[Rfam]
RNA sequence: CGUCUCCUCCAUGUCUCCUCUUGAUAUGGAUUCAGCCCGCCAGCCUGGCGGGCUUUCUUUU
Numbered sequence: 001c002g003u004c005u006c007c008u009c010c011a012u013g014u015c016u017c018c019u020c021u022u023g024a025u026a027u028g029g030a031u032u033c034a035g036c037c038c039g040c041c042a043g044c045c046u047g048g049c050g051g052g053c054u055u056u057c058u059u060u061u
Stems, first nucleotide, its partner, number of pairs: 008030008034054008
RNA: Betaproteobacteria toxic small RNA